[Rfam]
RNA: psaA RNA
RNA sequence: UUUAUGCUGCUUGAAGCGGUCCCCUUGUAGGGGCCCAUAGCUCCAGUGUGAGUCUGAGUUUCGACUUUCGACUUGUGCUGGCGCCCGGUAUCAGCACCACUUCGGUGGUGGUGUCUCCGGGGCCCCGGCAAGCCCAUGGGCCUGUCGAAGGGGUGGACCUCCACCUCGAUCCCGUCCCUCGAGGAACCUCUCGAUGA
Numbered sequence: 001u002u003u004a005u006g007c008u009g010c011u012u013g014a015a016g017c018g019g020u021c022c023c024c025u026u027g028u029a030g031g032g033g034c035c036c037a038u039a040g041c042u043c044c045a046g047u048g049u050g051a052g053u054c055u056g057a058g059u060u061u062c063g064a065c066u067u068u069c070g071a072c073u074u075g076u077g078c079u080g081g082c083g084c085c086c087g088g089u090a091u092c093a094g095c096a097c098c099a100c101u102u103c104g105g106u107g108g109u110g111g112u113g114u115c116u117c118c119g120g121g122g123c124c125c126c127g128g129c130a131a132g133c134c135c136a137u138g139g140g141c142c143u144g145u146c147g148a149a150g151g152g153g154u155g156g157a158c159c160u161c162c163a164c165c166u167c168g169a170u171c172c173c174g175u176c177c178c179u180c181g182a183g184g185a186a187c188c189u190c191u192c193g194a195u196g197a
Stems, first nucleotide, its partner, number of pairs: 018158001020156001021153006030126007040084002043081007051073004056068002058065002086119003092113002095110006127146004132141002164184006